[Rfam]
RNA: Archaeal small subunit ribosomal RNA, nucleotides 497 to 855
RNA sequence: GGUCUAAAGCGUUUGUAGCCGGACUCGCAAGUCUUCUGUGAAAUCUGACGGCUUAACCGUCAGGCGUGCAGGGGAAACUACAAGUCUAGGGACCGGGAAGGGCCAAAGAUACUCUAGGGGUAGGGGUGAAAUCCAAUAAUCCUUAGGGGAUCGCCAGUGGCGAAGGCGUUUGGCUAGAACGGGUCCGACGGUGAGGGACGAAAGCUAGGGGAGCGAACGGGAUUAGAUACCCCGGUAGUCCUAGCCGUAAAUGAUGUGGACUAGGUGUUGCAUUCCCCUUGUGGGAAUGCAGUGCCGAAGGGAAGCCGUUAAGUUCACCGCCUGGGAAGUACGGUCGCAAGGCCGAAACUUAAAGGAAU
Number, nucleotide and partner (000 for none) at each position: 001g322002g321003u320004c000005u000006a000007a000008a000009g319010c000011g199012u198013u197014u196015g000016u193017a000018g192019c191020c190021g000022g086023a085024c084025u083026c000027g081028c000029a000030a079031g078032u075033c074034u073035u072036c071037u070038g069039u068040g067041a000042a000043a000044u000045c063046u062047g061048a060049c059050g058051g057052c000053u000054u000055a000056a000057c051058c050059g049060u048061c047062a046063g045064g000065c000066g000067u040068g039069c038070a037071g036072g035073g034074g033075a032076a000077a000078c031079u030080a000081c027082a000083a025084g024085u023086c022087u000088a000089g000090g186091g185092a184093c182094c181095g180096g000097g000098a000099a000100g000101g175102g174103c173104c172105a171106a170107a169108g152109a151110u000111a000112c148113u147114c146115u145116a144117g143118g142119g141120g000121u000122a000123g134124g133125g132126g000127u000128g000129a000130a000131a000132u125133c124134c123135a000136a000137u000138a000139a000140u000141c119142c118143u117144u116145a115146g114147g113148g112149g000150a000151u109152c108153g000154c000155c000156a000157g000158u000159g000160g167161c166162g000163a000164a000165g000166g161167c160168g000169u107170u106171u105172g104173g103174c102175u101176a000177g000178a000179a000180c095181g094182g093183g000184u092185c091186c090187g000188a000189c000190g020191g019192u018193g016194a000195g000196g014197g013198a012199c011200g000201a000202a000203a000204g245205c244206u243207a242208g241209g240210g000211g000212a000213g239214c238215g000216a000217a000218c234219g233220g232221g231222a000223u000224u000225a000226g000227a000228u000229a000230c000231c221232c220233c219234g218235g000236u000237a000238g214239u213240c209241c208242u207243a206244g205245c204246c000247g000248u000249a000250a000251a000252u000253g000254a000255u000256g318257u317258g316259g315260a314261c313262u000263a000264g296265g295266u294267g293268u292269u291270g290271c289272a288273u287274u286275c285276c284277c283278c000279u000280u000281g000282u000283g277284g276285g275286a274287a273288u272289g271290c270291a269292g268293u267294g266295c265296c264297g000298a000299a000300g307301g306302g000303a000304a000305g000306c301307c300308g000309u000310u000311a000312a000313g261314u260315u259316c258317a257318c256319c009320g003321c002322c001323u000324g351325g350326g349327a000328a000329g000330u000331a000332c000333g344334g343335u342336c341337g000338c000339a000340a000341g336342g335343c334344c333345g000346a000347a000348a000349c326350u325351u324352a000353a000354a000355g000356g000357a000358a000359u000